Background: The record is a 134-nucleotide sequence from Chanos chanos, which matches "Small nucleolar RNA SNORA9" in Rfam. Pairs were carried over by alignment from the consensus structure, which was predicted with PFOLD. Gene Ontology terms of the family: nucleolus and RNA processing. A search with the family's covariance model found it, with a score of 111 bits. ACA9 is a member of the H/ACA class of snoRNA that guide the sites of modification of uridines to pseudouridines.

RNA sequence: UCGCAGGCUGUUCAGCGAGGCCGGGCCUGUCAUGACCCUGACCUUUCCUUUAGUGUCUGCGAGAGCAAACCUGGGGUGGUUUGAGGCCCUGCUGUGUCUCCUCCAUGGCAAGGUUAUAGAAACCCCGUACAACC
Numbered sequence: 001u002c003g004c005a006g007g008c009u010g011u012u013c014a015g016c017g018a019g020g021c022c023g024g025g026c027c028u029g030u031c032a033u034g035a036c037c038c039u040g041a042c043c044u045u046u047c048c049u050u051u052a053g054u055g056u057c058u059g060c061g062a063g064a065g066c067a068a069a070c071c072u073g074g075g076g077u078g079g080u081u082u083g084a085g086g087c088c089c090u091g092c093u094g095u096g097u098c099u100c101c102u103c104c105a106u107g108g109c110a111a112g113g114u115u116a117u118a119g120a121a122a123c124c125c126c127g128u129a130c131a132a133c134c
Base pairs, nucleotide, nucleotide: 003060004059005058006057007056008055018044019043020042023038024037025036027034072127073126074125075124076123087113088112090110091109092108094106095105096104